RNA sequence: CGCCUCAUGCCUGAAAGGGCGACAGCGAAUGUUGGAGCGAGGAGUCAGCUGAGGUCGUAGUAGUGCCAGUAGCGGGCCGCUGAGGCACAAGCCAACGCACGAAGGAC
Numbered sequence: 001c002g003c004c005u006c007a008u009g010c011c012u013g014a015a016a017g018g019g020c021g022a023c024a025g026c027g028a029a030u031g032u033u034g035g036a037g038c039g040a041g042g043a044g045u046c047a048g049c050u051g052a053g054g055u056c057g058u059a060g061u062a063g064u065g066c067c068a069g070u071a072g073c074g075g076g077c078c079g080c081u082g083a084g085g086c087a088c089a090a091g092c093c094a095a096c097g098c099a100c101g102a103a104g105g106a107c
Base pairs, nucleotide, nucleotide: 001027002026005024008021009020010019011018012017045052046051054107055106056105063100064099065098
The record is a 107-nucleotide RNA sequence from Polaromonas sp. JS666, which matches "Group II catalytic intron D1-D4-1" in Rfam. From the family's description: Group II introns are found in rRNA, tRNA and mRNA of organelles in fungi, plants and protists, and also in mRNA in bacteria. Rfam 15.1 lists 2,508 matches to the family in 1,144 species. NCBI's taxonomy places the organism under Bacteria, Pseudomonadati, Betaproteobacteria, Comamonadaceae, Polaromonas.